[Rfam]
RNA sequence: UGUCAAGAGUUUUGGCGUCGUUUUGGCGAGCAGGUUUCUUUUGCCUAGCGAUAGGUGGAAGGAAGAAAUG
Dot-bracket structure: .........((((..((((.(.(((..(.(((((.....))))).)..))).))))).....))))....
The family of this 70-nucleotide RNA sequence from Mesorhizobium denitrificans is "S-element". From the family's description: This family represents a group of S-elements from p42d and related plasmids.